RNA sequence: GGCUGGUCUGAAGGUAGAAUCAGUGAUCUCAACUGAUUGUUCACAGUUACAGAUGGAACUCCUUGUUCUACUUUUUCCCCUGUGUCACUACUGCAUUUGACUAGUUUAAA
Numbered sequence: 001g002g003c004u005g006g007u008c009u010g011a012a013g014g015u016a017g018a019a020u021c022a023g024u025g026a027u028c029u030c031a032a033c034u035g036a037u038u039g040u041u042c043a044c045a046g047u048u049a050c051a052g053a054u055g056g057a058a059c060u061c062c063u064u065g066u067u068c069u070a071c072u073u074u075u076u077c078c079c080c081u082g083u084g085u086c087a088c089u090a091c092u093g094c095a096u097u098u099g100a101c102u103a104g105u106u107u108a109a110a
Stems, first nucleotide, its partner, number of pairs: 001106008010098002014094002016089002018085001045069002
Rfam assigns this 110-nucleotide RNA from Prolemur simus to the family "Y RNA". The organism belongs to Prolemur, within Eukaryota. For this family Rfam cites "Caenorhabditis elegans embryos contain only one major species of Ro RNP" (Van Horn et al., RNA, 1995). It is annotated as a non-coding RNA gene. Pairs were carried over by alignment from the consensus structure, which is taken from published work.